[Rfam]
The family of this 52-nucleotide RNA sequence from Tritonibacter aquimaris is "ffh sRNA". The literature on the family includes a 2009 paper in BMC Genomics by Meyer et al., "Identification of candidate structured RNAs in the marine organism 'Candidatus Pelagibacter ubique'". The family's RNA type in Rfam is small RNA. NCBI's taxonomy places the organism under Bacteria, Pseudomonadati, Rhodobacterales, Paracoccaceae, Tritonibacter. The base pairs follow the family's consensus structure, which is taken from published work. The match comes from Rfam's covariance-model search (64 bits).

RNA sequence: UUCGCCAGGGAUCGCCCCCCACCAGCGUGUUACGCCCGUGGGGGCGCUUGUG
Number, nucleotide and partner (000 for none) at each position: 001u000002u000003c000004g000005c000006c000007a000008g000009g000010g000011a000012u000013c000014g000015c000016c044017c043018c042019c041020c040021a039022c038023c000024a000025g035026c034027g033028u032029g000030u000031u000032a028033c027034g026035c025036c000037c000038g022039u021040g020041g019042g018043g017044g016045c000046g000047c000048u000049u000050g000051u000052g000